[Rfam]
The record is a 103-nucleotide sequence from Niallia circulans, which matches "Purine riboswitch aptamer" in Rfam. Taxonomically the source falls in Niallia (Bacteria, Bacilli, Caryophanales, Bacillaceae).

RNA sequence: ACAACUGAAAAAGAUUUUACUCGUAUAAUAUCGGGGAAUACGGCCCGAAAGUUUCUACCGAGCUACCGUAAAUAGCUUGACUACGAGGUAAGUGUAUAUAGGG
Numbered sequence: 001a002c003a004a005c006u007g008a009a010a011a012a013g014a015u016u017u018u019a020c021u022c023g024u025a026u027a028a029u030a031u032c033g034g035g036g037a038a039u040a041c042g043g044c045c046c047g048a049a050a051g052u053u054u055c056u057a058c059c060g061a062g063c064u065a066c067c068g069u070a071a072a073u074a075g076c077u078u079g080a081c082u083a084c085g086a087g088g089u090a091a092g093u094g095u096a097u098a099u100a101g102g103g
Stems, first nucleotide, its partner, number of pairs: 020087006029050001031048005059079007
Dot-bracket structure: ...................((((((...(.(((((........))))).)........(((((((.......)))))))..))))))................